[Rfam]
RNA sequence: GGGGUUAUAGCCCAGCUGGUUAGAGCGCUACGCUCACAUCGUAGAGGUCACAGGUUCGAACCCUGUUAACCCCA
Numbered sequence: 001g002g003g004g005u006u007a008u009a010g011c012c013c014a015g016c017u018g019g020u021u022a023g024a025g026c027g028c029u030a031c032g033c034u035c036a037c038a039u040c041g042u043a044g045a046g047g048u049c050a051c052a053g054g055u056u057c058g059a060a061c062c063c064u065g066u067u068a069a070c071c072c073c074a
Base pairs, nucleotide, nucleotide: 001073002072003071004070005069006068007067010026011025013023028044029043030042031041032040050066051065052064053063054062
Dot-bracket structure: (((((((..((.(.........).)).(((((.......))))).....(((((.......)))))))))))).

Rfam assigns this 74-nucleotide sequence from Thermoanaerobacterium sp. RBIITD to the family "tRNA".
The match comes from Rfam's covariance-model search (67 bits).
The family's consensus secondary structure is taken from published work.
Lineage of the source: Bacteria > Bacillati > Clostridia > Thermoanaerobacteraceae > Thermoanaerobacterium.